[Rfam]
RNA: bZIP non canonical Hac1/Xbp1 intron
RNA sequence: CCCGAUUUUGACUUGACACAAUAUCCUGCUGCGAUGUUGUGCGACCUGCAGUGUCAGUCAACUUCGGG
Numbered sequence: 001c002c003c004g005a006u007u008u009u010g011a012c013u014u015g016a017c018a019c020a021a022u023a024u025c026c027u028g029c030u031g032c033g034a035u036g037u038u039g040u041g042c043g044a045c046c047u048g049c050a051g052u053g054u055c056a057g058u059c060a061a062c063u064u065c066g067g068g
Stems, first nucleotide, its partner, number of pairs: 001068005009060005020038006043055003